[Rfam]
RNA sequence: AAACCUUUUAACUAAGUCCAGAGAGGCUUACAAGGGUGUUAGACCUGAACCAGUCUGUUAAGAAUGGUUUAGGUUUGGAUCAAUGCACCCUGAUAGCAAGAUAUUAGGGUGCAUUUUUUA
Dot-bracket structure: ..((((((....((((((......)))))).)))))).....((((((((((.(((....))).)))))))))).......((((((((((((((......)))))))))))))).....
RNA: PyrR binding site
Organism: Neobacillus vireti